[Rfam]
RNA: FMN riboswitch aptamer (RFN element)
RNA sequence: CUUUGUCUUCAGGGCGGGGUGCAAUUCCCCACUGGCGGUACAGUCCGCGACCGGCGGCCGUAAGGCCUCCGCUGACCCGGUGAAACUCCGGAACCAACCGUAUAGUCGGGAUGGAAGAAGAUGAGU
Numbered sequence: 001c002u003u004u005g006u007c008u009u010c011a012g013g014g015c016g017g018g019g020u021g022c023a024a025u026u027c028c029c030c031a032c033u034g035g036c037g038g039u040a041c042a043g044u045c046c047g048c049g050a051c052c053g054g055c056g057g058c059c060g061u062a063a064g065g066c067c068u069c070c071g072c073u074g075a076c077c078c079g080g081u082g083a084a085a086c087u088c089c090g091g092a093a094c095c096a097a098c099c100g101u102a103u104a105g106u107c108g109g110g111a112u113g114g115a116a117g118a119a120g121a122u123g124a125g126u
Stems, first nucleotide, its partner, number of pairs: 003124008017029003031106002033096002035048004043094002052071002077091004098109003